[Rfam]
RNA sequence: UAAUAAGGAUGAACGGCUAAGUAUGCCACUUCCUGUGGCAACGCCGUUCUGACCAACAUCCUGUUGG
Number, nucleotide and partner (000 for none) at each position: 001u000002a000003a000004u000005a000006a000007g000008g000009a000010u000011g049012a048013a047014c046015g045016g044017c043018u000019a000020a000021g000022u000023a000024u000025g039026c038027c037028a036029c035030u000031u000032c000033c000034u000035g029036u028037g027038g026039c025040a000041a000042c000043g017044c016045c015046g014047u013048u012049c011050u000051g000052a000053c067054c066055a065056a064057c063058a000059u000060c000061c000062u000063g057064u056065u055066g054067g053
A member of the RNA family "Bacillaceae-1 RNA" from Lederbergia galactosidilytica, 67 nucleotides long. The family's RNA type in Rfam is small RNA. NCBI's taxonomy places the organism under Bacteria, Bacillati, Bacilli, Caryophanales, Lederbergia.